Shown here is a 51-nucleotide RNA sequence from Pseudomonas sp. v388, a member of the family "Guanidine-II riboswitch aptamer (mini-ykkC)". The family has 72 seed sequences and 1,589 matches in Rfam 15.1. It scores 33 bits against the family's covariance model. For this family Rfam cites "Biochemical Validation of a Second Guanidine Riboswitch Class in Bacteria" (Sherlock et al., Biochemistry, 2017). Simpler in structure and has fewer highly conserved nucleotide positions than the ykkC-yxkD leader.

RNA sequence: CUUUGAGGACGACCUCACCCAUCAUGGGCAUCACUUUCCGGGACGGCCCGG
Numbered sequence: 001c002u003u004u005g006a007g008g009a010c011g012a013c014c015u016c017a018c019c020c021a022u023c024a025u026g027g028g029c030a031u032c033a034c035u036u037u038c039c040g041g042g043a044c045g046g047c048c049c050g051g
Stems, first nucleotide, its partner, number of pairs: 004017005038051005